This 504-nucleotide part of an RNA from Solanum tuberosum belongs to the Rfam family "Eukaryotic large subunit ribosomal RNA". Taxonomically the source falls in Solanum (Eukaryota, Streptophyta, Tracheophyta, asterids). The base pairs follow the family's consensus structure, which is taken from published work.

[Rfam]
RNA sequence: UGGAACAAUGUAGGCAAGGAAAGUUGGCAAAAUGGAUCCGUAACUUCUUGAAAAGAAUUGGCUCGAAGGGUUUGGCAUGGGGUUCCUAGUACCAAACCCACUGGCUGUCGGUGAACUGCAUGAGCUGAUCCCGCAAAAAUAGUGGGACGUCGUGUGCCGGCCGAGGGACGGACUGGGAACGGUUUCUUCGGAGGCCUUCCCCGGGAGUCAAACAGCCAACUCAGAACUGGUACGGACAAGGGGAAUUCGACUAUUUAAAUAAAACAAAGCAUUGCGAUGGUCCCAAAGGAUGUUUACGUAAUGUGAUUUUUGUCCAGUGCUCUGAAUGUCAAAGUGAAGAAAUUCAACCAUGCGGGGGUAAACGGCCGGAGUAACUAUGACUCUCUUAAGGUAGACAAAUACCUCUUCAUCUAAUUAGUGAUGCGUAUGAAUGUAUUAAUAAGAUUCCCACUGUCCCUGUCUAAUAUCCAGCGAAACCACAGCCAAGGGAACAUGUUUGGCAGA
Dot-bracket structure: ((((......((((((.(((..............(((.(...............).)))((.((..((((((...(.(((((.(((.(((......(.(.(((((...(((((..((((......((......))......))))..)))))...)))))..).)......))).)))....................))))).)........))))..))..)).))(...).......(((((((.(..(.(.........).)..((((((((...((((....)))).....))))))))...(.(.(((..((((((....(((.....((((....)))).....))).))))..))))).(((((.......))))).(...)................((((.......))))...........).)....)..)))))))....))).))))))...))))............(((((........)))))....
Numbered sequence: 001u002g003g004a005a006c007a008a009u010g011u012a013g014g015c016a017a018g019g020a021a022a023g024u025u026g027g028c029a030a031a032a033u034g035g036a037u038c039c040g041u042a043a044c045u046u047c048u049u050g051a052a053a054a055g056a057a058u059u060g061g062c063u064c065g066a067a068g069g070g071u072u073u074g075g076c077a078u079g080g081g082g083u084u085c086c087u088a089g090u091a092c093c094a095a096a097c098c099c100a101c102u103g104g105c106u107g108u109c110g111g112u113g114a115a116c117u118g119c120a121u122g123a124g125c126u127g128a129u130c131c132c133g134c135a136a137a138a139a140u141a142g143u144g145g146g147a148c149g150u151c152g153u154g155u156g157c158c159g160g161c162c163g164a165g166g167g168a169c170g171g172a173c174u175g176g177g178a179a180c181g182g183u184u185u186c187u188u189c190g191g192a193g194g195c196c197u198u199c200c201c202c203g204g205g206a207g208u209c210a211a212a213c214a215g216c217c218a219a220c221u222c223a224g225a226a227c228u229g230g231u232a233c234g235g236a237c238a239a240g241g242g243g244a245a246u247u248c249g250a251c252u253a254u255u256u257a258a259a260u261a262a263a264a265c266a267a268a269g270c271a272u273u274g275c276g277a278u279g280g281u282c283c284c285a286a287a288g289g290a291u292g293u294u295u296a297c298g299u300a301a302u303g304u305g306a307u308u309u310u311u312g313u314c315c316a317g318u319g320c321u322c323u324g325a326a327u328g329u330c331a332a333a334g335u336g337a338a339g340a341a342a343u344u345c346a347a348c349c350a351u352g353c354g355g356g357g358g359u360a361a362a363c364g365g366c367c368g369g370a371g372u373a374a375c376u377a378u379g380a381c382u383c384u385c386u387u388a389a390g391g392u393a394g395a396c397a398a399a400u401a402c403c404u405c406u407u408c409a410u411c412u413a414a415u416u417a418g419u420g421a422u423g424c425g426u427a428u429g430a431a432u433g434u435a436u437u438a439a440u441a442a443g444a445u446u447c448c449c450a451c452u453g454u455c456c457c458u459g460u461c462u463a464a465u466a467u468c469c470a471g472c473g474a475a476a477c478c479a480c481a482g483c484c485a486a487g488g489g490a491a492c493a494u495g496u497u498u499g500g501c502a503g504a
Stems, first nucleotide, its partner, number of pairs: 001470004011463006018456003035059003039055001060228002063225002067221002069217004076205001078203005084178003088174003097165001099163001101160005109152005116145004126135002229233001241449007249440001252266001254264001269304008280291004308435001310433001312366003317363002319359004327354003335346004368384005386390001407421004483500005